[Rfam]
RNA sequence: AGAGCCCCACAGCGAAAGUCUAGCGAACUACGUUGACCUCGAGUCAUGCGCCGGCGGUGGCGACAUCGCGGGUGAAGCGUUGACAGAGGCACUGGCGGGCCGAUUAUCGAGCCGCGAAAUACCUCUUUUCGGGCGCCGACCCUGUGGACAGAAGGGGAAGGCCACAUCGACUGUCGCGUUAGCGCGAGCGGCAGCCGAGCCCGGCGCGGUCGCGGGAACCC
Numbered sequence: 001a002g003a004g005c006c007c008c009a010c011a012g013c014g015a016a017a018g019u020c021u022a023g024c025g026a027a028c029u030a031c032g033u034u035g036a037c038c039u040c041g042a043g044u045c046a047u048g049c050g051c052c053g054g055c056g057g058u059g060g061c062g063a064c065a066u067c068g069c070g071g072g073u074g075a076a077g078c079g080u081u082g083a084c085a086g087a088g089g090c091a092c093u094g095g096c097g098g099g100c101c102g103a104u105u106a107u108c109g110a111g112c113c114g115c116g117a118a119a120u121a122c123c124u125c126u127u128u129u130c131g132g133g134c135g136c137c138g139a140c141c142c143u144g145u146g147g148a149c150a151g152a153a154g155g156g157g158a159a160g161g162c163c164a165c166a167u168c169g170a171c172u173g174u175c176g177c178g179u180u181a182g183c184g185c186g187a188g189c190g191g192c193a194g195c196c197g198a199g200c201c202c203g204g205c206g207c208g209g210u211c212g213c214g215g216g217a218a219c220c221c
Base pairs, nucleotide, nucleotide: 010035011034012033013032014031017029018028019027021187023185024184037089038088039087040086043084044083045082046081047079048078049074050073051072052071054069055068056067057066058065059064108215109211111210112209113208114207115206116205129204130203131202132201133200134199135162136161137160140156141155142154143153167198168197169196171194172193173192174191175190176189177188